[Rfam]
RNA: L2-Alphaproteobacteria ribosomal protein leader
RNA sequence: GGGCACCUCAGUAGCGGGUUUAUCCGCGCGAAAGGGGGCCUUUAACAUAGCGGGUCCAAAGACAAGAACCUAAGGACACGCACGCUAAACGGAAGACAGAAA
Numbered sequence: 001g002g003g004c005a006c007c008u009c010a011g012u013a014g015c016g017g018g019u020u021u022a023u024c025c026g027c028g029c030g031a032a033a034g035g036g037g038g039c040c041u042u043u044a045a046c047a048u049a050g051c052g053g054g055u056c057c058a059a060a061g062a063c064a065a066g067a068a069c070c071u072a073a074g075g076a077c078a079c080g081c082a083c084g085c086u087a088a089a090c091g092g093a094a095g096a097c098a099g100a101a102a
Base pairs, nucleotide, nucleotide: 001041002040003039004038006037007036008035050081051080052079054077055076056075